Mason-Pfizer monkey virus packaging signal: a 274-nucleotide RNA sequence from Saimiri boliviensis. A search with the family's covariance model found it, with a score of 115 bits. Rfam's curators write: This family represents a group of sequences that are related to the Mason-Pfizer monkey virus (MPMV) packaging signal. The packaging signal is located in the 5' UTR and is required for specific RNA encapsidation. By type it is a cis-regulatory element.
RNA sequence: UGGCGCCCAAUGUGGGACUCGAUGCAAGAGGGACACCGUGAGGGACGUCGUCCAAGCCUGCCGGAUUGAAGGAAGAAAUCCAGAGAAGGAGUCACCGCGGGAACCUGCUGCGGCCUUGCUCUCUGGUAAGUGAACGACGAUAUUAUGGGUCAGGAAAUUAGUCAGCAUGAAUCGUUCGUUGAAGGACUCAGCAAAGCCUUAAAGGCGCGAGGAGUAAAGGUGAAAGUAAGCCGGUUAAUCAAAUAUUUUGAUUAUACUAAGGAUGUUUGCCCCU
Numbered sequence: 001u002g003g004c005g006c007c008c009a010a011u012g013u014g015g016g017a018c019u020c021g022a023u024g025c026a027a028g029a030g031g032g033a034c035a036c037c038g039u040g041a042g043g044g045a046c047g048u049c050g051u052c053c054a055a056g057c058c059u060g061c062c063g064g065a066u067u068g069a070a071g072g073a074a075g076a077a078a079u080c081c082a083g084a085g086a087a088g089g090a091g092u093c094a095c096c097g098c099g100g101g102a103a104c105c106u107g108c109u110g111c112g113g114c115c116u117u118g119c120u121c122u123c124u125g126g127u128a129a130g131u132g133a134a135c136g137a138c139g140a141u142a143u144u145a146u147g148g149g150u151c152a153g154g155a156a157a158u159u160a161g162u163c164a165g166c167a168u169g170a171a172u173c174g175u176u177c178g179u180u181g182a183a184g185g186a187c188u189c190a191g192c193a194a195a196g197c198c199u200u201a202a203a204g205g206c207g208c209g210a211g212g213a214g215u216a217a218a219g220g221u222g223a224a225a226g227u228a229a230g231c232c233g234g235u236u237a238a239u240c241a242a243a244u245a246u247u248u249u250g251a252u253u254a255u256a257c258u259a260a261g262g263a264u265g266u267u268u269g270c271c272c273c274u
Stems, first nucleotide, its partner, number of pairs: 006031002008028001012025003037047003084124003087120002091115001096112005131152003135149001158201001160199001161197002208250005214244002218236002221233002259274001261272002264269001